The record is an 86-nucleotide RNA from Bacillus aerolatus, which matches "c-di-GMP-I riboswitch aptamer" in Rfam.
Its Rfam clan is "c-di-GMP_I riboswitch clan".
Pairs were carried over by alignment from the consensus structure, which is taken from published work.
GEMM was predicted in a large-scale screen for bacterial structured RNA regulatory elements.
RNA sequence: UUAUGAAAAAGGCAAACUUAUUGAAAAGUAAGGGCGCAAAGUUACAGGUCUAAGGUGUGGUUUGCUAUGAUGGCUGAGCUGCCUAU
Numbered sequence: 001u002u003a004u005g006a007a008a009a010a011g012g013c014a015a016a017c018u019u020a021u022u023g024a025a026a027a028g029u030a031a032g033g034g035c036g037c038a039a040a041g042u043u044a045c046a047g048g049u050c051u052a053a054g055g056u057g058u059g060g061u062u063u064g065c066u067a068u069g070a071u072g073g074c075u076g077a078g079c080u081g082c083c084u085a086u
Base pairs, nucleotide, nucleotide: 012037013036017032018031019030020029021028022027040080041079042078043077045076046075047074048071049070050069055065056064057063